[Rfam]
RNA sequence: UUUUGUCAUUGAUAUAGGAAUCGUACUUAGUACGAGAGGAACCGUACGUUCGGACAUUUGGUUUACGUAUUUGUUCGAAAGGACAAUGAUGCGAAGCUACCAUCCGACGGCUUACAACUGAACGCCUCUAAGUUGGAAUCCGAUCUAGACUCAAUGAUUUUUUGGCACAUUGGUUGUCGUCAGCACAUUUAUAUAUGUCCAAACUGUUGAUAAAGUGGGCAUAUGAAUGAAGCUACCGUGUUGUUGCUUUGUCAUAAUCGAAAUGAGAUUGUGAUUGCAACGAUGCAUUUUUAGUCGAAACAACACUAAUGGCUAGAAUCGAUUGUAAACGACUUUCUUCAGUAACAGAGUAACGUACACGUGAGAGCAACCGCCACAUUGCGAUCCGCUGAGUUUCUGCUCGAUGUUAUGCUGAUUCGA
Numbered sequence: 001u002u003u004u005g006u007c008a009u010u011g012a013u014a015u016a017g018g019a020a021u022c023g024u025a026c027u028u029a030g031u032a033c034g035a036g037a038g039g040a041a042c043c044g045u046a047c048g049u050u051c052g053g054a055c056a057u058u059u060g061g062u063u064u065a066c067g068u069a070u071u072u073g074u075u076c077g078a079a080a081g082g083a084c085a086a087u088g089a090u091g092c093g094a095a096g097c098u099a100c101c102a103u104c105c106g107a108c109g110g111c112u113u114a115c116a117a118c119u120g121a122a123c124g125c126c127u128c129u130a131a132g133u134u135g136g137a138a139u140c141c142g143a144u145c146u147a148g149a150c151u152c153a154a155u156g157a158u159u160u161u162u163u164g165g166c167a168c169a170u171u172g173g174u175u176g177u178c179g180u181c182a183g184c185a186c187a188u189u190u191a192u193a194u195a196u197g198u199c200c201a202a203a204c205u206g207u208u209g210a211u212a213a214a215g216u217g218g219g220c221a222u223a224u225g226a227a228u229g230a231a232g233c234u235a236c237c238g239u240g241u242u243g244u245u246g247c248u249u250u251g252u253c254a255u256a257a258u259c260g261a262a263a264u265g266a267g268a269u270u271g272u273g274a275u276u277g278c279a280a281c282g283a284u285g286c287a288u289u290u291u292u293a294g295u296c297g298a299a300a301c302a303a304c305a306c307u308a309a310u311g312g313c314u315a316g317a318a319u320c321g322a323u324u325g326u327a328a329a330c331g332a333c334u335u336u337c338u339u340c341a342g343u344a345a346c347a348g349a350g351u352a353a354c355g356u357a358c359a360c361g362u363g364a365g366a367g368c369a370a371c372c373g374c375c376a377c378a379u380u381g382c383g384a385u386c387c388g389c390u391g392a393g394u395u396u397c398u399g400c401u402c403g404a405u406g407u408u409a410u411g412c413u414g415a416u417u418c419g420a
Stems, first nucleotide, its partner, number of pairs: 005158008015147004020050001022048005051106004059099003066093005071086006108142003115135005168311006316418005321337002325333001342410006348402003352395002360388002364385001367382004